[Rfam]
RNA sequence: GCAGUGCCAAUCUAGUGGAAGGGGUGUACAAACGAGGCAUACAUUGUCAUUAUUUUCACCUCGGGAAGGUCUGAGAUAAGAUUAUUAAACGUUCUAGCCGGACGGCAUCAUAAUGAUGCGUACGAGAACCAGAAAUAGCUUUGCGUUUUUCAAAAUGCUGAGGAUGCUUUUUUAAAAGCAGAGGCGACUGGAAACGUGAAGUUGAAAUCUCGUAUAAUCCGCAAGUUCAGUCUAAUCCACAAGCCUGGUAGUCACACCAGGAACUCAAUUCAGACUAAUCUGAUGCUGC
Numbered sequence: 001g002c003a004g005u006g007c008c009a010a011u012c013u014a015g016u017g018g019a020a021g022g023g024g025u026g027u028a029c030a031a032a033c034g035a036g037g038c039a040u041a042c043a044u045u046g047u048c049a050u051u052a053u054u055u056u057c058a059c060c061u062c063g064g065g066a067a068g069g070u071c072u073g074a075g076a077u078a079a080g081a082u083u084a085u086u087a088a089a090c091g092u093u094c095u096a097g098c099c100g101g102a103c104g105g106c107a108u109c110a111u112a113a114u115g116a117u118g119c120g121u122a123c124g125a126g127a128a129c130c131a132g133a134a135a136u137a138g139c140u141u142u143g144c145g146u147u148u149u150u151c152a153a154a155a156u157g158c159u160g161a162g163g164a165u166g167c168u169u170u171u172u173u174a175a176a177a178g179c180a181g182a183g184g185c186g187a188c189u190g191g192a193a194a195c196g197u198g199a200a201g202u203u204g205a206a207a208u209c210u211c212g213u214a215u216a217a218u219c220c221g222c223a224a225g226u227u228c229a230g231u232c233u234a235a236u237c238c239a240c241a242a243g244c245c246u247g248g249u250a251g252u253c254a255c256a257c258c259a260g261g262a263a264c265u266c267a268a269u270u271c272a273g274a275c276u277a278a279u280c281u282g283a284u285g286c287u288g289c
Stems, first nucleotide, its partner, number of pairs: 001289004008282002012243002015240004021062005035050001037048001071273005080219004090104005105119005120215007140201003244261006